A member of the RNA family "SAM riboswitch aptamer (S box leader)" from Planococcus rifietoensis, 115 nucleotides long. Rfam describes the family as follows. The SAM riboswitch is found upstream of a number of genes which code for proteins involved in methionine or cysteine biosynthesis in Gram-positive bacteria. The SAM riboswitch acts at the level of transcription termination control.

[Rfam]
RNA sequence: CUCUUAUCACGAGAGGCGGAGGGAAUAGGCCCUACGAUGCCCGGCAACCAACAGGCUCAUGUCUGGAAAGGUGCUAAAUCCUACAGCGCGCAUUUGCGUCGCUGAAAGAUAAGAG
Numbered sequence: 001c002u003c004u005u006a007u008c009a010c011g012a013g014a015g016g017c018g019g020a021g022g023g024a025a026u027a028g029g030c031c032c033u034a035c036g037a038u039g040c041c042c043g044g045c046a047a048c049c050a051a052c053a054g055g056c057u058c059a060u061g062u063c064u065g066g067a068a069a070g071g072u073g074c075u076a077a078a079u080c081c082u083a084c085a086g087c088g089c090g091c092a093u094u095u096g097c098g099u100c101g102c103u104g105a106a107a108g109a110u111a112a113g114a115g
Stems, first nucleotide, its partner, number of pairs: 001115008013042001015041003021032003026083004043075004048071002052065002079107001084104005
The match comes from Rfam's covariance-model search (80 bits). The organism belongs to Planococcus, within Bacteria. The family's consensus secondary structure is taken from published work.